[Rfam]
RNA: TPP riboswitch aptamer (THI element)
Organism: Brevibacillus laterosporus
RNA sequence: CAUGUACUAAACGGGGGCCGGGCAAAUACGGCUGAGAUUGUAACAGAAUGCGUUACUGACCGUAGAACCUGAACUGGGUAAUGCCAGCGGAGGGAGAGGUAGCUGACUUCAA
Numbered sequence: 001c002a003u004g005u006a007c008u009a010a011a012c013g014g015g016g017g018c019c020g021g022g023c024a025a026a027u028a029c030g031g032c033u034g035a036g037a038u039u040g041u042a043a044c045a046g047a048a049u050g051c052g053u054u055a056c057u058g059a060c061c062g063u064a065g066a067a068c069c070u071g072a073a074c075u076g077g078g079u080a081a082u083g084c085c086a087g088c089g090g091a092g093g094g095a096g097a098g099g100u101a102g103c104u105g106a107c108u109u110c111a112a
Stems, first nucleotide, its partner, number of pairs: 006100003011063004016057001017032004040056004068093003074087004